[Rfam]
RNA sequence: AUGAUUAUUGCAGGAGAGAUAUUCUUGCAAAGGAUACGCCGAAGGAGCAACGACCCCGGAAACUCUCAGGCAGAAGGACUGUAAUAAUCGA
Numbered sequence: 001a002u003g004a005u006u007a008u009u010g011c012a013g014g015a016g017a018g019a020u021a022u023u024c025u026u027g028c029a030a031a032g033g034a035u036a037c038g039c040c041g042a043a044g045g046a047g048c049a050a051c052g053a054c055c056c057c058g059g060a061a062a063c064u065c066u067c068a069g070g071c072a073g074a075a076g077g078a079c080u081g082u083a084a085u086a087a088u089c090g091a
Base pairs, nucleotide, nucleotide: 006086007085008084009083010082011081012080013079020036021035022034023033038071039070040069041067042066045065046064047063051058052057
RNA: Glycine riboswitch aptamer